[Rfam]
RNA sequence: GCGAGUUGACGAUAGAAAUUCAUUAGUCUGUCAAUCCACUGACUAAACAAAUUUGUGAUGUUAUCAUGAAUCCCGACAGGUUCCGAUCGC
Numbered sequence: 001g002c003g004a005g006u007u008g009a010c011g012a013u014a015g016a017a018a019u020u021c022a023u024u025a026g027u028c029u030g031u032c033a034a035u036c037c038a039c040u041g042a043c044u045a046a047a048c049a050a051a052u053u054u055g056u057g058a059u060g061u062u063a064u065c066a067u068g069a070a071u072c073c074c075g076a077c078a079g080g081u082u083c084c085g086a087u088c089g090c
Base pairs, nucleotide, nucleotide: 001090002089003088004087

Description
Small nucleolar RNA snoR14: a 90-nucleotide sequence from Manihot esculenta. By type it is a C/D-box small nucleolar RNA. Taxonomically the source falls in Manihot (Eukaryota, Tracheophyta, fabids, Manihoteae). The family has 7 seed sequences and 668 matches in Rfam 15.1.